[Rfam]
The record is a 512-nucleotide part of an RNA from Rubidibacter lacunae, which matches "Bacterial small subunit ribosomal RNA" in Rfam. The family is grouped with related families in Rfam's "SSU clan". Its family is annotated with structural constituent of ribosome and ribosome in the Gene Ontology. The literature on the family includes a 2001 paper in Science by Yusupov et al., "Crystal structure of the ribosome at 5.5 A resolution". The match comes from Rfam's covariance-model search (1569 bits). The organism belongs to Rubidibacter lacunae, within Bacteria.

RNA sequence: ACCAUGGAGAGUUUGAUCCUGGCUCAGGAUGAACGCUGGCGGUCGGCCUAACACAUGCAAGUCGAACGAAGUCUUCGGACUUAGUGGCGGACGGGUGAGUAACACGUGAGAAUCUGCCCUCUGGAGGGGGACAACCGUUGGAAACGGCGGCUAAUACCCCAUAUGCCUUCGGGUGAAACGCUCCGGCGCCAGAGGAGGAGCUCGCGGCCGAUUAGCUAGUUGGUGGGGUAACGGCCUACCAAGGCAGCGAUCGGUAGCUGGUCUGAGAGGACGAGCAGCCACACUGGGACUGAGACACGGCCCAGACUCCUACGGGAGGCAGCAGUGGGGAAUUUUCCGCAAUGGGCGAAAGCCUGACGGAGCCAGACCGCGUGCGGGAAGAAGGCCUUUGGGUUGUAAACCGCUUUUCUCAGGGAAGAAGACAGUGACGGUACCUGAGGAAUCAGCCUCGGCUAACUCCGUGCCAGCAGCCGCGGUAAUACGGAGGAGGCAAGCGUUAUCCGGAAUUAUUG
Dot-bracket structure: ........(((((.......))))).((((.((((((.(((((((((....(((.(((..(((..((.(((((....))))).)))))......(((.......((((((..((...(((((((.((((.....((((((....))))))......)))).....((....))......((....)).)))))))..)).)))))).(((....(((..((((((((.......)))))))))))......)))..((((((((....))))...))))))).(((((............))))).((((....))))...)))))).).....(.(((...(((((....))))).)))).)).))))))..((((......((((....)))).....))))....((((((...(..........)....))))))......(((((......(((((.....((....)).......)))))))))).))))))))))..........